RNA sequence: CCGUUUGCAUCGACGCGCGCCCCGUCCUAUAUUCGGAGGUGCCGGUUCGCCGGCUAUGACGCUAAACCCUGCUUGGAAUAAGCGUAGUGGACCCGGGGGCAGUACCCGGCGCCUCCACCAAUGACCAGGGGUCCGCGCCGCGUCGCGGGCCCCGAUCCGGGGGCGAAACAGGAUCGACACGCGUGGUAAAGAAGCAGGUUGCGUUCGGCAUGGCACCACCGUUAUCGGGCCAAACGCAAUAGUUGCCAACGACAACUAUGCUCCGGAAGCUGUCGCCGCGUAAUGCGGUGCCGGUAACCGAUCUAAGCCCCGGCCGGUAGCACGGUCGGGCGGGGUCCGGAGGGCACCUGGCAACAGAAGCCCUCCAUU
Dot-bracket structure: ........................................(((((....)))))...(((((.....(((((((........(((.(((...(((((.......)))))(((((((..........................................)))))))............))))))........)))))))..)))))[[[..(((..((.]]].....)).)))....................................................................................................[[[[..((((((.]]]]...........))))))...

Annotation: The family of this 369-nucleotide RNA from Roseospira navarrensis is "Alphaproteobacteria transfer-messenger RNA". NCBI's taxonomy places the organism under Bacteria, Pseudomonadati, Alphaproteobacteria, Rhodospirillaceae, Roseospira. The family's consensus secondary structure is taken from published work. A search with the family's covariance model found it, with a score of 284 bits. It is annotated as a non-coding RNA gene.